Background
Shown here is a 90-nucleotide sequence from Sporobacter termitidis, a member of the family "pan motif". The source organism's lineage runs through Bacteria, Bacillati, Eubacteriales, Sporobacter and Sporobacter termitidis. Pairs were carried over by alignment from the consensus structure, which is taken from published work.
[Rfam]
RNA sequence: GCGGCGGUAUCUUUAUGAGCUGCACGCGGCAAGAGGCUUAUUCCGGCAUGUAAAAAACCUGCUUUGAUCCUUAGUGACAGAGACAGUUAU
Numbered sequence: 001g002c003g004g005c006g007g008u009a010u011c012u013u014u015a016u017g018a019g020c021u022g023c024a025c026g027c028g029g030c031a032a033g034a035g036g037c038u039u040a041u042u043c044c045g046g047c048a049u050g051u052a053a054a055a056a057a058c059c060u061g062c063u064u065u066g067a068u069c070c071u072u073a074g075u076g077a078c079a080g081a082g083a084c085a086g087u088u089a090u
Stems, first nucleotide, its partner, number of pairs: 001027003004023005010018002059086003062082005068077002